[Rfam]
RNA: Small nucleolar RNA snR35
RNA sequence: AAUUAAAAUUAAUCGUGCGGAUUAAUAAUCCAGGACUCUAAAACCGUGUUGCUUCUUCUAAUUCAAUUUAGAAUCCAAAGCGUCAAGUCCAUCGGAGAGAAUAAUUUGUUCAUCUUAAUGCCCUUUUGUGUAAUUCUUGUAAAGUUUUCUUGAGAAUCAAGGAUUUUUUUUCUUUAUUUCUCAGGUCCUCUUUAACAUACCGUUAUGCAAGGGCUGGUAGGACAUACAUCU
Numbered sequence: 001a002a003u004u005a006a007a008a009u010u011a012a013u014c015g016u017g018c019g020g021a022u023u024a025a026u027a028a029u030c031c032a033g034g035a036c037u038c039u040a041a042a043a044c045c046g047u048g049u050u051g052c053u054u055c056u057u058c059u060a061a062u063u064c065a066a067u068u069u070a071g072a073a074u075c076c077a078a079a080g081c082g083u084c085a086a087g088u089c090c091a092u093c094g095g096a097g098a099g100a101a102u103a104a105u106u107u108g109u110u111c112a113u114c115u116u117a118a119u120g121c122c123c124u125u126u127u128g129u130g131u132a133a134u135u136c137u138u139g140u141a142a143a144g145u146u147u148u149c150u151u152g153a154g155a156a157u158c159a160a161g162g163a164u165u166u167u168u169u170u171u172c173u174u175u176a177u178u179u180c181u182c183a184g185g186u187c188c189u190c191u192u193u194a195a196c197a198u199a200c201c202g203u204u205a206u207g208c209a210a211g212g213g214c215u216g217g218u219a220g221g222a223c224a225u226a227c228a229u230c231u
Stems, first nucleotide, its partner, number of pairs: 008026007029096003033090004051081004056073006113222005120214005127209008138197003